[Rfam]
RNA sequence: UGAUGGGGUAGAGGUCGCGGCUUUUAUGAGUAAUUCGGACGAGAUGCUGAGAACAUUGACGACUCCGAAGGAAAGGAAAAGCCGCCGAAGUCCGUCCUGUUCUCAGAAGGCGCGGGCUGGGGCUGUAUCCGAAUAGGAACAGAACUGUCACGCUUUUUGCCCGUAAAGCGUGGAGCACUACUGAAGAA
Number, nucleotide and partner (000 for none) at each position: 001u000002g000003a000004u000005g000006g000007g182008g181009u180010a179011g178012a000013g000014g000015u000016c000017g085018c084019g083020g082021c081022u080023u079024u078025u077026a000027u000028g000029a000030g000031u000032a000033a000034u069035u068036c067037g066038g065039a064040c000041g000042a000043g000044a000045u000046g000047c000048u000049g000050a000051g000052a000053a000054c000055a000056u000057u000058g000059a000060c000061g000062a000063c000064u039065c038066c037067g036068a035069a034070g000071g000072a000073a000074a000075g000076g000077a025078a024079a023080a022081g021082c020083c019084g018085c017086c000087g000088a000089a118090g117091u116092c115093c114094g113095u112096c000097c110098u109099g000100u107101u000102c000103u000104c000105a000106g000107a100108a000109g098110g097111c000112g095113c094114g093115g092116g091117c090118u089119g146120g145121g000122g000123c142124u141125g140126u139127a000128u137129c136130c000131g000132a000133a000134u000135a000136g129137g128138a000139a126140c125141a124142g123143a000144a000145c120146u119147g000148u173149c172150a171151c170152g169153c168154u167155u166156u165157u000158u000159g000160c000161c000162c000163g000164u000165a156166a155167a154168g153169c152170g151171u150172g149173g148174a000175g000176c000177a000178c011179u010180a009181c008182u007183g000184a000185a000186g000187a000188a000